Description:
Rfam assigns this 87-nucleotide RNA from Leptolyngbya sp. BL0902 to the family "Fluoride riboswitch aptamer (crcB RNA motif)". The family has 289 seed sequences and 2,293 matches in Rfam 15.1.
RNA sequence: AGCAGCAAUGGCGAUGGAGCUCGCCAAAACCGCCCCGCGUUUGCGACUAUCAUUGCAGCGCUCUAGGCUGAUGGCUCCUACUCUUCC
Number, nucleotide and partner (000 for none) at each position: 001a000002g000003c000004a000005g000006c000007a000008a000009u000010g025011g024012c023013g022014a000015u000016g078017g077018a076019g075020c074021u073022c013023g012024c011025c010026a000027a000028a000029a000030c000031c000032g068033c067034c066035c000036c000037g000038c000039g000040u000041u000042u000043g000044c000045g000046a000047c000048u000049a000050u000051c000052a000053u000054u000055g000056c000057a000058g000059c000060g000061c000062u000063c000064u000065a000066g034067g033068c032069u000070g000071a000072u000073g021074g020075c019076u018077c017078c016079u000080a000081c000082u000083c000084u000085u000086c000087c000
About this RNA:
A search with the family's covariance model found it, with a score of 50 bits.